A member of the RNA family "COG3860 RNA" from Rhodopseudomonas palustris, 54 nucleotides long.
Lineage of the source: Bacteria > Pseudomonadati > Nitrobacteraceae > Rhodopseudomonas > Rhodopseudomonas palustris.
The sequence is in the family's curated seed alignment.
By type it is a cis-regulatory element.
[Rfam]
RNA sequence: UGGUCGGCAGUUCACCAAGGCGUCGCUGUCCCGCAAGGGGAGCUAAACCUGCCU
Numbered sequence: 001u002g003g004u005c006g007g008c009a010g011u012u013c014a015c016c017a018a019g020g021c022g023u024c025g026c027u028g029u030c031c032c033g034c035a036a037g038g039g040g041a042g043c044u045a046a047a048c049c050u051g052c053c054u
Stems, first nucleotide, its partner, number of pairs: 001017004029040004